L31-Coriobacteria ribosomal protein leader: a 30-nucleotide RNA from Enterorhabdus sp. P55. A search with the family's covariance model found it, with a score of 34 bits. By type it is a cis-regulatory leader. Its Rfam clan is "Ribosomal Protein L31 Leader clan". The literature on the family includes a 2020 paper in BMC Microbiol by Eckert and Weinberg, "Discovery of 20 novel ribosomal leader candidates in bacteria and archaea".

RNA sequence: UCCUUGGUCGGAAACCAAGGAGAUGAGGAG
Numbered sequence: 001u002c003c004u005u006g007g008u009c010g011g012a013a014a015c016c017a018a019g020g021a022g023a024u025g026a027g028g029a030g
Base pairs, nucleotide, nucleotide: 001021002020003019004018005017006016007015008014